RNA sequence: CCUAGGGCUAGACGCCCUAGGCUGGUAUUGGACGCGCCUUUGGCGCU
Numbered sequence: 001c002c003u004a005g006g007g008c009u010a011g012a013c014g015c016c017c018u019a020g021g022c023u024g025g026u027a028u029u030g031g032a033c034g035c036g037c038c039u040u041u042g043g044c045g046c047u
Stems, first nucleotide, its partner, number of pairs: 001021008034046005

This 47-nucleotide RNA sequence from Prosthecobacter gellanilyticus belongs to the Rfam family "Acido-Lenti-1 RNA".
A search with the family's covariance model found it, with a score of 39 bits.
It is annotated as a small RNA.
The base pairs follow the family's consensus structure, which is taken from published work.